[Rfam]
RNA sequence: UUCCACAGCUACUGGUCUGCAGCUGUUCUUAUGUAGCAGUUGUGGCAUACCGCUGUGGGAGAGAAACUGUUCCAUGAUUAAACACCUCUUUCUUAGCAAAAUUGAAGUGGGCAUAUGUGUGACAAACAGAA
Numbered sequence: 001u002u003c004c005a006c007a008g009c010u011a012c013u014g015g016u017c018u019g020c021a022g023c024u025g026u027u028c029u030u031a032u033g034u035a036g037c038a039g040u041u042g043u044g045g046c047a048u049a050c051c052g053c054u055g056u057g058g059g060a061g062a063g064a065a066a067c068u069g070u071u072c073c074a075u076g077a078u079u080a081a082a083c084a085c086c087u088c089u090u091u092c093u094u095a096g097c098a099a100a101a102u103u104g105a106a107g108u109g110g111g112c113a114u115a116u117g118u119g120u121g122a123c124a125a126a127c128a129g130a131a
Base pairs, nucleotide, nucleotide: 003058004057005056006055017045018044019043020042021041022040023039024038025037073119074118075117076116085111086110087109088107089106091105092104
The record is a 131-nucleotide sequence from Panthera leo, which matches "Small nucleolar RNA SNORA41" in Rfam. The organism belongs to Panthera, within Eukaryota. From the family's description: ACA41 is a member of the H/ACA class of snoRNA that guide the sites of modification of uridines to pseudouridines. Rfam links the family to the GO terms RNA processing and nucleolus. Pairs were carried over by alignment from the consensus structure, which was predicted with PFOLD. The family's RNA type in Rfam is H/ACA-box small nucleolar RNA. A reference for the family is Huttenhofer et al. (2001), "RNomics: an experimental approach that identifies 201 candidates for novel, small, non-messenger RNAs in mouse", EMBO J.